[Rfam]
RNA sequence: AAUGGUACUUCUCCGAGAUAACCGGAGCCGGGCAGCGCGGAGGCGCGAACCGGUGAAGCACCGCUUAGGUUGAAAUACGCCUUUGGGGGCUUCA
Numbered sequence: 001a002a003u004g005g006u007a008c009u010u011c012u013c014c015g016a017g018a019u020a021a022c023c024g025g026a027g028c029c030g031g032g033c034a035g036c037g038c039g040g041a042g043g044c045g046c047g048a049a050c051c052g053g054u055g056a057a058g059c060a061c062c063g064c065u066u067a068g069g070u071u072g073a074a075a076u077a078c079g080c081c082u083u084u085g086g087g088g089g090c091u092u093c094a
Stems, first nucleotide, its partner, number of pairs: 011027005028053004054094006062087001067082004
RNA: dinG RNA